[Rfam]
RNA sequence: GAGUAGUGGCAGUUGGCUAUACAUGCCAUGCAUGGUUUAGGCCGUGCACUGUAUGGACAUCAAGACAUAUGGCUGGCAGAAUUUCUGAACCCUCCAAUAGGGUCGGCACCCUUUGCUGACCCUUUUUU
Numbered sequence: 001g002a003g004u005a006g007u008g009g010c011a012g013u014u015g016g017c018u019a020u021a022c023a024u025g026c027c028a029u030g031c032a033u034g035g036u037u038u039a040g041g042c043c044g045u046g047c048a049c050u051g052u053a054u055g056g057a058c059a060u061c062a063a064g065a066c067a068u069a070u071g072g073c074u075g076g077c078a079g080a081a082u083u084u085c086u087g088a089a090c091c092c093u094c095c096a097a098u099a100g101g102g103u104c105g106g107c108a109c110c111c112u113u114u115g116c117u118g119a120c121c122c123u124u125u126u127u128u
Base pairs, nucleotide, nucleotide: 007028008027009026010025011024029048030047031046032045033044034043035042036041049072050071051070052069053068054067055066096125097124100122101121102120103119104118106116107115108114
RNA: U11 spliceosomal RNA
Organism: Chara braunii